[Rfam]
RNA sequence: GUGGGCUACGGAGACAUGUGCCCGGUCACAAUCGGCGGAAAGAUCGUGGGCUCGCUGUGCGCCAUCGCUGGUGUGCUGACCAUCGCGCUGCCCGUGCCCGUCAUCGUCUCAAAU
Numbered sequence: 001g002u003g004g005g006c007u008a009c010g011g012a013g014a015c016a017u018g019u020g021c022c023c024g025g026u027c028a029c030a031a032u033c034g035g036c037g038g039a040a041a042g043a044u045c046g047u048g049g050g051c052u053c054g055c056u057g058u059g060c061g062c063c064a065u066c067g068c069u070g071g072u073g074u075g076c077u078g079a080c081c082a083u084c085g086c087g088c089u090g091c092c093c094g095u096g097c098c099c100g101u102c103a104u105c106g107u108c109u110c111a112a113a114u
Stems, first nucleotide, its partner, number of pairs: 001114002005110001008107004013102003018097004037077002040074001049063003